[Rfam]
Shown here is a 79-nucleotide RNA sequence, a member of the family "L2-Alphaproteobacteria ribosomal protein leader". A reference for the family is Eckert and Weinberg (2020), "Discovery of 20 novel ribosomal leader candidates in bacteria and archaea", BMC Microbiol. By type it is a cis-regulatory leader.
RNA sequence: AGGCACCUACGGGGGCCUUAAACAUAGCUGGGCCAAAGAAAAUAACCUAAGGCUCGGCAAGCUAAACGGAAGACAGAAA
Numbered sequence: 001a002g003g004c005a006c007c008u009a010c011g012g013g014g015g016c017c018u019u020a021a022a023c024a025u026a027g028c029u030g031g032g033c034c035a036a037a038g039a040a041a042a043u044a045a046c047c048u049a050a051g052g053c054u055c056g057g058c059a060a061g062c063u064a065a066a067c068g069g070a071a072g073a074c075a076g077a078a079a
Base pairs, nucleotide, nucleotide: 001018002017003016004015006014007013008012027058028057029056030055031054032053033052